Background
A member of the RNA family "Bacterial large subunit ribosomal RNA" from Mariniphaga anaerophila, 436 nucleotides of a longer RNA. The organism belongs to Mariniphaga, within Bacteria.

RNA sequence: CUCCCCGAAAUGCAUUUAGGUGCAGCCUUGUAAUAGUUUUGCAGAGGUAGAGCUACUGAUUGGAUGCGAGGGCUUCGCCGCCUAUCAAAUCCAGACAAACUCCGAAUGCUGUAAAAUGUUUUACAGGAGUGAGGGCAUGGGUGCUAAGGUCCGUGUCCGAAAGGGAAAGAACCCGGACCACCAGCUAAGGUCCCGAAGUGUAUGCUAAGUUGAAGAAAACGAGGUCCGGCUGCUUAGACAGCUAGGAUGUUGGCUUGGAAGCAGCCAUUCAUUUAAAGAGUGCGUAACAGCUCACUAGUCGAGCGGCUGGGCAUGGAUAAUAAUCGGGCAUAAGCAUACCACCGAAGCUGUGGACUAUGAAAAUAGUGGUAGGGGAGCAUUCCAGAAGCGUCGAAGAUAUACUGUGAGGUGUAUUGGAGCGUCUGGAAAAGCAAAU
Number, nucleotide and partner (000 for none) at each position: 001c377002u376003c375004c374005c373006c372007g000008a000009a000010a000011u024012g023013c022014a021015u020016u000017u000018a000019g000020g015021u014022g013023c012024a011025g000026c129027c127028u126029u125030g124031u123032a122033a121034u000035a120036g117037u116038u115039u114040u113041g112042c111043a110044g109045a000046g000047g000048u000049a000050g103051a101052g100053c000054u000055a000056c000057u097058g096059a000060u000061u093062g092063g091064a090065u000066g000067c000068g086069a085070g083071g082072g081073c080074u000075u000076c000077g000078c000079c000080g073081c072082c071083u070084a000085u069086c068087a000088a000089a000090u064091c063092c062093a061094g000095a000096c058097a057098a000099a000100c052101u051102c000103c050104g000105a000106a000107u000108g000109c044110u043111g042112u041113a040114a039115a038116a037117u036118g000119u000120u035121u033122u032123a031124c030125a029126g028127g027128a000129g026130u000131g000132a000133g158134g157135g156136c155137a154138u153139g152140g151141g150142u149143g000144c000145u000146a000147a000148g000149g142150u141151c140152c139153g138154u137155g136156u135157c134158c133159g000160a000161a000162a000163g174164g173165g172166a000167a000168a000169g000170a000171a000172c165173c164174c163175g000176g000177a000178c353179c352180a351181c350182c000183a349184g348185c347186u000187a000188a000189g343190g342191u341192c000193c000194c000195g000196a000197a000198g340199u000200g339201u338202a337203u336204g335205c334206u000207a000208a000209g000210u000211u000212g000213a000214a000215g000216a000217a000218a000219a000220c315221g314222a000223g000224g312225u311226c310227c309228g308229g307230c306231u305232g304233c303234u000235u000236a000237g000238a000239c000240a000241g299242c298243u297244a296245g295246g000247a272248u271249g270250u000251u000252g266253g265254c264255u000256u000257g000258g000259a000260a000261g000262c000263a000264g254265c253266c252267a000268u000269u000270c249271a248272u247273u277274u000275a000276a000277a273278g293279a000280g000281u000282g291283c290284g000285u000286a000287a000288c000289a000290g283291c282292u000293c278294a000295c245296u244297a243298g242299u241300c000301g000302a000303g233304c232305g231306g230307c229308u228309g227310g226311g225312c224313a000314u221315g220316g000317a000318u000319a000320a000321u000322a000323a000324u000325c000326g000327g000328g000329c000330a000331u000332a000333a000334g205335c204336a203337u202338a201339c200340c198341a191342c190343c189344g000345a000346a000347g185348c184349u183350g181351u180352g179353g178354a367355c366356u365357a364358u363359g000360a000361a000362a000363a358364u357365a356366g355367u354368g000369g000370u000371a000372g006373g005374g004375g003376a002377g001378c431379a000380u428381u427382c426383c425384a424385g423386a422387a000388g420389c419390g000391u000392c000393g000394a000395a000396g415397a414398u413399a412400u411401a410402c409403u408404g000405u000406g000407a000408g403409g402410u401411g400412u399413a398414u397415u396416g000417g000418a000419g389420c388421g000422u386423c385424u384425g383426g382427a381428a380429a000430a000431g378432c000433a000434a000435a000436u000